[Rfam]
RNA sequence: UCAUCACCAUCAUCACCCUGAUUGAUCUUUCGGGCGUUUUGUGGUGUUCGGAAGAAAAGAAAACUUCCGGGCAAGUGUGGAAACAGGAUUGCUAAACCUCUCGGAAGGAAACUUUCGGGAGGUUUUUUUA
Number, nucleotide and partner (000 for none) at each position: 001u000002c000003a000004u000005c000006a000007c000008c046009a045010u044011c000012a038013u000014c036015a000016c000017c034018c033019u032020g031021a030022u000023u000024g000025a000026u000027c000028u000029u000030u021031c020032g019033g018034g017035c000036g014037u000038u012039u000040u000041g000042u000043g000044g010045u009046g008047u071048u070049c069050g068051g067052a066053a065054g064055a000056a000057a000058a000059g000060a000061a000062a000063a000064c054065u053066u052067c051068c050069g049070g048071g047072c000073a000074a000075g000076u000077g000078u000079g000080g000081a000082a000083a000084c000085a000086g000087g000088a000089u000090u000091g000092c000093u000094a125095a124096a123097c122098c121099u120100c119101u118102c117103g116104g115105a114106a113107g112108g000109a000110a000111a000112c107113u106114u105115u104116c103117g102118g101119g100120a099121g098122g097123u096124u095125u094126u000127u000128u000129u000130a000
RNA: Histidine operon leader